[Rfam]
RNA sequence: UUUGGUCUAGUGGUGGCUGCUCUAUGUAUCAGAGAGGAAAGUCCGAGCUACAGAGACAGGAUUCCAUUUAACGAAUGGCUAGGGUAACCUAAGGGAAAGUGCAACAGAAAACAACCGCCAUUUCAAAUGGUAAGGGUGAAAAGGUGGGGUAAGAGCCUACCGGAAUCUAAGCAAUUAGAUUUGUCUAUGCAAACCCAAUCCGUAGCAAGAGGAGCUUGGUAAUGUCUCAUUUUUGCUCCUUGCUUGAGGUAUAUUGCGAAAUAUAUCCCAGAUAAAUAGCCACCCUCGACAGAACUCGGCUUAUACUAGACCAAACCUU
Numbered sequence: 001u002u003u004g005g006u007c008u009a010g011u012g013g014u015g016g017c018u019g020c021u022c023u024a025u026g027u028a029u030c031a032g033a034g035a036g037g038a039a040a041g042u043c044c045g046a047g048c049u050a051c052a053g054a055g056a057c058a059g060g061a062u063u064c065c066a067u068u069u070a071a072c073g074a075a076u077g078g079c080u081a082g083g084g085u086a087a088c089c090u091a092a093g094g095g096a097a098a099g100u101g102c103a104a105c106a107g108a109a110a111a112c113a114a115c116c117g118c119c120a121u122u123u124c125a126a127a128u129g130g131u132a133a134g135g136g137u138g139a140a141a142a143g144g145u146g147g148g149g150u151a152a153g154a155g156c157c158u159a160c161c162g163g164a165a166u167c168u169a170a171g172c173a174a175u176u177a178g179a180u181u182u183g184u185c186u187a188u189g190c191a192a193a194c195c196c197a198a199u200c201c202g203u204a205g206c207a208a209g210a211g212g213a214g215c216u217u218g219g220u221a222a223u224g225u226c227u228c229a230u231u232u233u234u235g236c237u238c239c240u241u242g243c244u245u246g247a248g249g250u251a252u253a254u255u256g257c258g259a260a261a262u263a264u265a266u267c268c269c270a271g272a273u274a275a276a277u278a279g280c281c282a283c284c285c286u287c288g289a290c291a292g293a294a295c296u297c298g299g300c301u302u303a304u305a306c307u308a309g310a311c312c313a314a315a316c317c318u319u
Stems, first nucleotide, its partner, number of pairs: 001315010012284007020034004039302003043299005048205004055227001059201005064078005079093001080091004094196002099194002101190003115135002117131006143161006162185001163182008209241007219233001221231003248267008
Bacterial RNase P class A: a 319-nucleotide sequence from Helicobacter fennelliae.
The family's consensus secondary structure is taken from published work.
The literature on the family includes a 2013 paper in RNA Biol by Beauregard et al., "Identification and characterization of small RNAs in Yersinia pestis".
Gene Ontology terms of the family: dimeric ribonuclease P complex, ribonuclease P activity and tRNA processing.
About the family: Ribonuclease P (RNase P) is a ubiquitous endoribonuclease, found in archaea, bacteria and eukarya as well as chloroplasts and mitochondria. Its best characterised activity is the generation of mature 5'-ends of tRNAs by cleaving the 5'-leader elements of precursor-tRNAs.